[Rfam]
RNA sequence: AUCUGUCAGCUUUCACUACGGAUCGUCGGGCACGUACCUGCCCGUGAAAGGACCGCCA
Numbered sequence: 001a002u003c004u005g006u007c008a009g010c011u012u013u014c015a016c017u018a019c020g021g022a023u024c025g026u027c028g029g030g031c032a033c034g035u036a037c038c039u040g041c042c043c044g045u046g047a048a049a050g051g052a053c054c055g056c057c058a
Stems, first nucleotide, its partner, number of pairs: 010050006027044006
Rfam assigns this 58-nucleotide sequence from Micrococcus terreus to the family "msiK RNA". The family's RNA type in Rfam is cis-regulatory element. The match comes from Rfam's covariance-model search (58 bits). Lineage of the source: Bacteria > Bacillati > Actinomycetes > Micrococcales > Micrococcus. The base pairs follow the family's consensus structure, which is taken from published work.